[Rfam]
RNA: U1 spliceosomal RNA
Organism: Chrysochloris asiatica
RNA sequence: AUACUUACCUGGCAGGGGAAAUACCAUGAUCACGAAUGUGGUUUUCCCAGGGUGAGGCUUAUUCAUUGCACUCUGGAUGUGCUGACCCCUACAAUAUCCCCAAAUACGGGAAACUCGACUGCAUAAUUUGUGGUAGUAGGGCACUGUGUUCACACUGUCCCCUG
Numbered sequence: 001a002u003a004c005u006u007a008c009c010u011g012g013c014a015g016g017g018g019a020a021a022u023a024c025c026a027u028g029a030u031c032a033c034g035a036a037u038g039u040g041g042u043u044u045u046c047c048c049a050g051g052g053u054g055a056g057g058c059u060u061a062u063u064c065a066u067u068g069c070a071c072u073c074u075g076g077a078u079g080u081g082c083u084g085a086c087c088c089c090u091a092c093a094a095u096a097u098c099c100c101c102a103a104a105u106a107c108g109g110g111a112a113a114c115u116c117g118a119c120u121g122c123a124u125a126a127u128u129u130g131u132g133g134u135a136g137u138a139g140g141g142c143a144c145u146g147u148g149u150u151c152a153c154a155c156u157g158u159c160c161c162c163u164g
Stems, first nucleotide, its partner, number of pairs: 012122004016048006023042005049090004054086001056083003060079005092117001094115001095113001097111001099109002138163004143158001146155003